Rfam assigns this 76-nucleotide sequence from Anisodus acutangulus to the family "Small nucleolar RNA R16". The source organism's lineage runs through Eukaryota, Tracheophyta, Euphyllophyta, asterids and Anisodus. The literature on the family includes a 2002 paper in Mol Cell Biol by Galardi et al., "Purified box C/D snoRNPs are able to reproduce site-specific 2'-O-methylation of target RNA in vitro". Gene Ontology terms of the family: RNA processing and nucleolus. It is annotated as a C/D-box small nucleolar RNA.

RNA sequence: UAUGGCAUAUGAUGAUACAGUGUAAAUACUGAAUAAUUAUGUCGAUCGUUUACUCCGCUUAUUAUCUGAUGUCAUU
Numbered sequence: 001u002a003u004g005g006c007a008u009a010u011g012a013u014g015a016u017a018c019a020g021u022g023u024a025a026a027u028a029c030u031g032a033a034u035a036a037u038u039a040u041g042u043c044g045a046u047c048g049u050u051u052a053c054u055c056c057g058c059u060u061a062u063u064a065u066c067u068g069a070u071g072u073c074a075u076u
Base pairs, nucleotide, nucleotide: 003074004073005072006071007070